[Rfam]
RNA sequence: GUCCGUCCUAUACAGAACACGGCAGAGGCGGGGGAACCGACGAACGGGGUUCCGAAAGAAAGCCCUAGGGGUUAAGGCGGAAGCCGCACAUACUUGGUUGCUGCAGUACGCCCGGGUGACUCCCAUCCGAAUCCGACAGCUAACUUCGCAGGCAUAGGGAGAGGCUCA
Numbered sequence: 001g002u003c004c005g006u007c008c009u010a011u012a013c014a015g016a017a018c019a020c021g022g023c024a025g026a027g028g029c030g031g032g033g034g035a036a037c038c039g040a041c042g043a044a045c046g047g048g049g050u051u052c053c054g055a056a057a058g059a060a061a062g063c064c065c066u067a068g069g070g071g072u073u074a075a076g077g078c079g080g081a082a083g084c085c086g087c088a089c090a091u092a093c094u095u096g097g098u099u100g101c102u103g104c105a106g107u108a109c110g111c112c113c114g115g116g117u118g119a120c121u122c123c124c125a126u127c128c129g130a131a132u133c134c135g136a137c138a139g140c141u142a143a144c145u146u147c148g149c150a151g152g153c154a155u156a157g158g159g160a161g162a163g164g165c166u167c168a
Stems, first nucleotide, its partner, number of pairs: 002026002028149006038068001069134003077111003114128004

Rfam assigns this 168-nucleotide RNA sequence from Arthrobacter subterraneus to the family "c-di-AMP riboswitch aptamer (ydaO/yuaA leader)". The match comes from Rfam's covariance-model search (49 bits). The source organism's lineage runs through Bacteria, Actinomycetes, Micrococcales, Micrococcaceae and Arthrobacter. Rfam links the family to the GO terms cyclic-di-AMP binding and regulation of gene expression.